[Rfam]
RNA sequence: CCACCAUAGAAACGUGGAGGAAAUUGUUUUACAAAAAACAAUUUCCUCCACGUUUCUAUGGUGG
Numbered sequence: 001c002c003a004c005c006a007u008a009g010a011a012a013c014g015u016g017g018a019g020g021a022a023a024u025u026g027u028u029u030u031a032c033a034a035a036a037a038a039c040a041a042u043u044u045c046c047u048c049c050a051c052g053u054u055u056c057u058a059u060g061g062u063g064g
Stems, first nucleotide, its partner, number of pairs: 001064003005060004010055019
RNA: mir-302 microRNA precursor family
Organism: Salmo salar